Group II catalytic intron D1-D4-3: a 172-nucleotide sequence.
Rfam's curators write: Group II introns are found in rRNA, tRNA and mRNA of organelles in fungi, plants and protists, and also in mRNA in bacteria.
RNA sequence: UCCAUCGCGAGGUGGAAUCUGAAGGAAGCCGCAGGCAAAGCGCUGACUCGACGAACAGAAAUCGCAUAUGAGGCAUGCAGUCUGGAUGAGAGGGCAAAUGUCUUUAAAGUCCAAUACCUGUACGGCAAGAUUGUAUGUAAAUGCGGCGAGUAUAAGCGUGAAAGUGAGAGCG
Numbered sequence: 001u002c003c004a005u006c007g008c009g010a011g012g013u014g015g016a017a018u019c020u021g022a023a024g025g026a027a028g029c030c031g032c033a034g035g036c037a038a039a040g041c042g043c044u045g046a047c048u049c050g051a052c053g054a055a056c057a058g059a060a061a062u063c064g065c066a067u068a069u070g071a072g073g074c075a076u077g078c079a080g081u082c083u084g085g086a087u088g089a090g091a092g093g094g095c096a097a098a099u100g101u102c103u104u105u106a107a108a109g110u111c112c113a114a115u116a117c118c119u120g121u122a123c124g125g126c127a128a129g130a131u132u133g134u135a136u137g138u139a140a141a142u143g144c145g146g147c148g149a150g151u152a153u154a155a156g157c158g159u160g161a162a163a164g165u166g167a168g169a170g171c172g
Stems, first nucleotide, its partner, number of pairs: 001016006030170001032168001035165002040159005046151005062146006073138003077134007084112004090105004

Pairs were carried over by alignment from the consensus structure. Rfam's curators put it in the seed alignment.